Shown here is a 378-nucleotide RNA from Nannocystis pusilla, a member of the family "Bacterial RNase P class A".
RNA sequence: CGAGGGGGACAAGGCGUUCGCGGGUGAGUAGCCCUCACGGGCGAGAGCACUCGAGGAAAGUCCGGGCUCCGCAGGGCAGGGUGCUGGCGCAGGCCAGUCGGGGCGACCCGAAGGAAAGUGCCACAGAGAAUCAGACCGCCCGCGUCCGCGCGGGUAAGGGUGAAAAGGUGCGGUAAGAGCGCACCGGGGACCUGGCGACAGGGACCGCACGGUAAACCCCACCCGGAGCAAGGCCAAACAGGGACACGGUGGCUCUCCGCAAGGAAGUCACCAGGGGCUGCCCGUCCCGUCCCGGGUAGUGCCGCGUAGAAGAAUGACCGCCACCUGGGGGAGGCGACGAACCCAGGGACAAACCCGGCUUACGACCCCGCUCGUCCG
Numbered sequence: 001c002g003a004g005g006g007g008g009a010c011a012a013g014g015c016g017u018u019c020g021c022g023g024g025u026g027a028g029u030a031g032c033c034c035u036c037a038c039g040g041g042c043g044a045g046a047g048c049a050c051u052c053g054a055g056g057a058a059a060g061u062c063c064g065g066g067c068u069c070c071g072c073a074g075g076g077c078a079g080g081g082u083g084c085u086g087g088c089g090c091a092g093g094c095c096a097g098u099c100g101g102g103g104c105g106a107c108c109c110g111a112a113g114g115a116a117a118g119u120g121c122c123a124c125a126g127a128g129a130a131u132c133a134g135a136c137c138g139c140c141c142g143c144g145u146c147c148g149c150g151c152g153g154g155u156a157a158g159g160g161u162g163a164a165a166a167g168g169u170g171c172g173g174u175a176a177g178a179g180c181g182c183a184c185c186g187g188g189g190a191c192c193u194g195g196c197g198a199c200a201g202g203g204a205c206c207g208c209a210c211g212g213u214a215a216a217c218c219c220c221a222c223c224c225g226g227a228g229c230a231a232g233g234c235c236a237a238a239c240a241g242g243g244a245c246a247c248g249g250u251g252g253c254u255c256u257c258c259g260c261a262a263g264g265a266a267g268u269c270a271c272c273a274g275g276g277g278c279u280g281c282c283c284g285u286c287c288c289g290u291c292c293c294g295g296g297u298a299g300u301g302c303c304g305c306g307u308a309g310a311a312g313a314a315u316g317a318c319c320g321c322c323a324c325c326u327g328g329g330g331g332a333g334g335c336g337a338c339g340a341a342c343c344c345a346g347g348g349a350c351a352a353a354c355c356c357g358g359c360u361u362a363c364g365a366c367c368c369c370g371c372u373c374g375u376c377c378g
Stems, first nucleotide, its partner, number of pairs: 001374004006369003013322004018317002021053006029045001058361003062358005067228004074283004079224005084097005098112001099110004113219002118217002120213003136159002138155007167185006186208001187206002191202004232303003235299001242293002274288005
NCBI's taxonomy places the organism under Bacteria, Pseudomonadati, Myxococcota, Nannocystaceae, Nannocystis.